[Rfam]
RNA sequence: GGGCACCUGCGGGGGCCUGAACACAGAGGCGGAGAAAUCCGCCGUAGCUUAACGGAAGACAGAAA
Numbered sequence: 001g002g003g004c005a006c007c008u009g010c011g012g013g014g015g016c017c018u019g020a021a022c023a024c025a026g027a028g029g030c031g032g033a034g035a036a037a038u039c040c041g042c043c044g045u046a047g048c049u050u051a052a053c054g055g056a057a058g059a060c061a062g063a064a065a
Stems, first nucleotide, its partner, number of pairs: 001018004006014003028043005
RNA: L2-Alphaproteobacteria ribosomal protein leader